The record is a 93-nucleotide RNA sequence from Caenimonas koreensis, which matches "SAH (S-adenosyl-L-homocysteine) riboswitch aptamer" in Rfam. For this family Rfam cites "Riboswitches that sense S-adenosylhomocysteine and activate genes involved in coenzyme recycling" (Wang et al., Mol Cell, 2008). The match comes from Rfam's covariance-model search (54 bits). Taxonomically the source falls in Caenimonas koreensis (Bacteria, Betaproteobacteria, Burkholderiales, Caenimonas). Gene Ontology terms of the family: S-adenosylhomocysteine metabolic process and regulation of gene expression.
[Rfam]
RNA sequence: UAGUUCAAGGAGCGCUGCAGCGAUUAAGCCAUUUGGUUAAUCGCCAGGCUUGAAUGUUUACUGACGAUUGACUUUCAACCGCGCUCACCUUCA
Number, nucleotide and partner (000 for none) at each position: 001u000002a000003g055004u054005u053006c052007a051008a050009g000010g000011a000012g000013c000014g000015c000016u000017g000018c000019a000020g000021c043022g042023a041024u040025u039026a038027a000028g000029c000030c000031a000032u000033u000034u000035g000036g000037u000038u026039a025040a024041u023042c022043g021044c000045c000046a000047g000048g000049c000050u008051u007052g006053a005054a004055u003056g000057u000058u000059u000060a000061c000062u000063g000064a000065c000066g000067a000068u000069u000070g000071a000072c000073u000074u000075u000076c000077a000078a000079c000080c000081g000082c000083g000084c000085u000086c000087a000088c000089c000090u000091u000092c000093a000